[Rfam]
RNA: Small nucleolar RNA SNORA25
RNA sequence: UUGUUAUUUUAAAGAGGGCUCAUGGGACCACGAAACCAAGAGCUCUUAAUGCUGUGACCAAAGACUGAAGUUCUCUAUAGGUUGCCAAGGCACUCAGUGGUGCUAUGUUUUCCUGAGGAAAUGUAAGA
Numbered sequence: 001u002u003g004u005u006a007u008u009u010u011a012a013a014g015a016g017g018g019c020u021c022a023u024g025g026g027a028c029c030a031c032g033a034a035a036c037c038a039a040g041a042g043c044u045c046u047u048a049a050u051g052c053u054g055u056g057a058c059c060a061a062a063g064a065c066u067g068a069a070g071u072u073c074u075c076u077a078u079a080g081g082u083u084g085c086c087a088a089g090g091c092a093c094u095c096a097g098u099g100g101u102g103c104u105a106u107g108u109u110u111u112c113c114u115g116a117g118g119a120a121a122u123g124u125a126a127g128a
Stems, first nucleotide, its partner, number of pairs: 003058005014047008023039001026037001072121001074119003079114003087106001089104006
Dot-bracket structure: ..(((((......((((((((.(..(..........).)))))))))......))))).............(.(((..(((.....(.((((((....)))))).).....)))..))).).......